[Rfam]
RNA sequence: CUUCACCGAGCCGAGCCACAGGGGCUCUCCCGCGCGGCCCUUGCCGUAGGUGGCGAGGAGCGCCUGCGCCUC
Numbered sequence: 001c002u003u004c005a006c007c008g009a010g011c012c013g014a015g016c017c018a019c020a021g022g023g024g025c026u027c028u029c030c031c032g033c034g035c036g037g038c039c040c041u042u043g044c045c046g047u048a049g050g051u052g053g054c055g056a057g058g059a060g061c062g063c064c065u066g067c068g069c070c071u072c
Stems, first nucleotide, its partner, number of pairs: 014026004031068003035062002040057003044053003

A member of the RNA family "ASpks TB sRNA" from Streptomyces sp. NRRL S-1521, 72 nucleotides long. Rfam 15.1 lists 9,052 matches to the family in 683 species. A search with the family's covariance model found it, with a score of 80 bits. The family's consensus secondary structure is taken from published work.